[Rfam]
RNA sequence: CUCUUAUCAAGAGUGGCGGAGGGACUGGCCCUGCGAUGCCCGGCAACCAUCAAAUGAAACAUUCAUUUGAACGGUGCUAAUUCCUGUGGAACAUCAGUAUUGUUCUAACAGAUGAGAG
Number, nucleotide and partner (000 for none) at each position: 001c118002u117003c116004u115005u114006a113007u112008c111009a000010a000011g000012a000013g041014u000015g040016g039017c038018g000019g000020a000021g031022g030023g029024a000025c086026u000027g084028g083029c023030c022031c021032u000033g000034c000035g000036a000037u000038g017039c016040c015041c013042g078043g077044c076045a075046a000047c074048c073049a000050u070051c069052a068053a067054a066055u065056g064057a000058a000059a000060c000061a000062u000063u000064c056065a055066u054067u053068u052069g051070a050071a000072c000073g048074g047075u045076g044077c043078u042079a000080a000081u000082u110083c028084c027085u000086g025087u107088g106089g105090a104091a103092c102093a000094u000095c000096a000097g000098u000099a000100u000101u000102g092103u091104u090105c089106u088107a087108a000109c000110a082111g008112a007113u006114g005115a004116g003117a002118g001

SAM riboswitch aptamer (S box leader): a 118-nucleotide sequence from Priestia megaterium. The organism belongs to Priestia megaterium, within Bacteria. Rfam links the family to the GO term regulation of gene expression. The family is grouped with related families in Rfam's "SAM clan".